[Rfam]
RNA sequence: UUACAUGUGGAUAUAACUUGUUAUUCCUGUGGGAAUAUCAUUAUACCUAUAACAUGGUAUUUUAGAAGGAGCCCUCAGGACUUCCAGCCUUUCAGUAAAGGUUGGAUGCUAGUAUAUUUCACACACAUAG
Numbered sequence: 001u002u003a004c005a006u007g008u009g010g011a012u013a014u015a016a017c018u019u020g021u022u023a024u025u026c027c028u029g030u031g032g033g034a035a036u037a038u039c040a041u042u043a044u045a046c047c048u049a050u051a052a053c054a055u056g057g058u059a060u061u062u063u064a065g066a067a068g069g070a071g072c073c074c075u076c077a078g079g080a081c082u083u084c085c086a087g088c089c090u091u092u093c094a095g096u097a098a099a100g101g102u103u104g105g106a107u108g109c110u111a112g113u114a115u116a117u118u119u120c121a122c123a124c125a126c127a128u129a130g
Base pairs, nucleotide, nucleotide: 004056005055006054007053008052020039022037023036024035025034026033027032069122071120080110085104086103087102088101089100090099091098

Small nucleolar RNA U109: a 130-nucleotide RNA sequence from Erinaceus europaeus. The family's consensus secondary structure was predicted with WAR. On this family, see Richard et al., EMBO J 2003: "A common sequence motif determines the Cajal body-specific localization of box H/ACA scaRNAs". Gene Ontology terms of the family: nucleolus and RNA processing. NCBI's taxonomy places the organism under Eukaryota, Teleostomi, Euteleostomi, Dipnotetrapodomorpha, Erinaceus.